The family of this 427-nucleotide RNA sequence from Sulfitobacter undariae is "Bacterial RNase P class A".
Rfam classes the family as a ribozyme.
Gene Ontology terms of the family: tRNA processing, ribonuclease P activity and dimeric ribonuclease P complex.

[Rfam]
RNA sequence: GCGGAAGGCUGGGUGACCGCUUUGAUGUUGUAAGGCAUCGGGGAGGAAAGUCCGGACUCCGGAAAGAAAUGGUGCCGGGUAACGCCCGGGCGGGGUAACCCGACGGAAAGCGCCACAGAAAAUAGACCGCCUGUCACUCCAAGGCUUGCUUUGGGUCAGUGUCAGGUAAGGGUGAAACGGUGGGGUAAGAGCCCACCGCGCGGCUGGCAACAGCGGCGGCAUGGCAAGCCCCACUGGGAGCAACGCCAAAUAGGGACCGCGUGCUUCCACGCCUUCGGGUAUGGCGGCGGAGCUUCUUUCGCUCCAGCAGGUCCGGGUUGGCGGCUGUAGCUGUGUCGGUAACGGCAUGGUCAGAGGAAUGGUCAUCCAAGAUGGCCGCGCAAGCGGUUCAUCUGGACAAAAUCCGGCUUAUAGGCCCUCCGCGCAA
Numbered sequence: 001g002c003g004g005a006a007g008g009c010u011g012g013g014u015g016a017c018c019g020c021u022u023u024g025a026u027g028u029u030g031u032a033a034g035g036c037a038u039c040g041g042g043g044a045g046g047a048a049a050g051u052c053c054g055g056a057c058u059c060c061g062g063a064a065a066g067a068a069a070u071g072g073u074g075c076c077g078g079g080u081a082a083c084g085c086c087c088g089g090g091c092g093g094g095g096u097a098a099c100c101c102g103a104c105g106g107a108a109a110g111c112g113c114c115a116c117a118g119a120a121a122a123u124a125g126a127c128c129g130c131c132u133g134u135c136a137c138u139c140c141a142a143g144g145c146u147u148g149c150u151u152u153g154g155g156u157c158a159g160u161g162u163c164a165g166g167u168a169a170g171g172g173u174g175a176a177a178c179g180g181u182g183g184g185g186u187a188a189g190a191g192c193c194c195a196c197c198g199c200g201c202g203g204c205u206g207g208c209a210a211c212a213g214c215g216g217c218g219g220c221a222u223g224g225c226a227a228g229c230c231c232c233a234c235u236g237g238g239a240g241c242a243a244c245g246c247c248a249a250a251u252a253g254g255g256a257c258c259g260c261g262u263g264c265u266u267c268c269a270c271g272c273c274u275u276c277g278g279g280u281a282u283g284g285c286g287g288c289g290g291a292g293c294u295u296c297u298u299u300c301g302c303u304c305c306a307g308c309a310g311g312u313c314c315g316g317g318u319u320g321g322c323g324g325c326u327g328u329a330g331c332u333g334u335g336u337c338g339g340u341a342a343c344g345g346c347a348u349g350g351u352c353a354g355a356g357g358a359a360u361g362g363u364c365a366u367c368c369a370a371g372a373u374g375g376c377c378g379c380g381c382a383a384g385c386g387g388u389u390c391a392u393c394u395g396g397a398c399a400a401a402a403u404c405c406g407g408c409u410u411a412u413a414g415g416c417c418c419u420c421c422g423c424g425c426a427a
Stems, first nucleotide, its partner, number of pairs: 001423005007417004011412001012367007020043009048410003052407005057240004065298002068295001070236005075089005090104001091102004105231002110229002112225003127171002129167005135161003179197006198220001199218003203214004244323004254314005289305005331350008